FMN riboswitch aptamer (RFN element): a 136-nucleotide sequence from Sediminispirochaeta smaragdinae.
It scores 96 bits against the family's covariance model.
The organism belongs to Sediminispirochaeta smaragdinae, within Bacteria.
Pairs were carried over by alignment from the consensus structure, which is taken from published work.

RNA sequence: CUUGAUUUUCGGGGCAAGGUGAGCCGUACUACGGCAAUUCCUUACUGGCGGUAAAGCCCGCGACUUCCUCGUUUGAGGAACUGAACCGGUUAGAUUCCGGUGCCAACGGUUAUAGUCCGGAUGGGAGAAAAUCUGA
Numbered sequence: 001c002u003u004g005a006u007u008u009u010c011g012g013g014g015c016a017a018g019g020u021g022a023g024c025c026g027u028a029c030u031a032c033g034g035c036a037a038u039u040c041c042u043u044a045c046u047g048g049c050g051g052u053a054a055a056g057c058c059c060g061c062g063a064c065u066u067c068c069u070c071g072u073u074u075g076a077g078g079a080a081c082u083g084a085a086c087c088g089g090u091u092a093g094a095u096u097c098c099g100g101u102g103c104c105a106a107c108g109g110u111u112a113u114a115g116u117c118c119g120g121a122u123g124g125g126a127g128a129a130a131a132u133c134u135g136a
Stems, first nucleotide, its partner, number of pairs: 004133007017042003044116002046105002048061004056103002065080002085101005107119003